The family of this 69-nucleotide sequence from Edolisoma coerulescens is "Small nucleolar RNA SNORD63". From the family's description: snoRNA U63 is found in both humans and mice. For this family Rfam cites "Purified box C/D snoRNPs are able to reproduce site-specific 2'-O-methylation of target RNA in vitro" (Galardi et al., Mol Cell Biol, 2002). By type it is a C/D-box small nucleolar RNA. A search with the family's covariance model found it, with a score of 58 bits. Gene Ontology terms of the family: RNA processing and nucleolus.
RNA sequence: GUGCCAUGAUGUUAAACUGUCAACACAUCAUUCUGAAGAGUUGUGUGGAGACUCUGUGAACUGAGCACG
Numbered sequence: 001g002u003g004c005c006a007u008g009a010u011g012u013u014a015a016a017c018u019g020u021c022a023a024c025a026c027a028u029c030a031u032u033c034u035g036a037a038g039a040g041u042u043g044u045g046u047g048g049a050g051a052c053u054c055u056g057u058g059a060a061c062u063g064a065g066c067a068c069g
Base pairs, nucleotide, nucleotide: 001068002067003066004065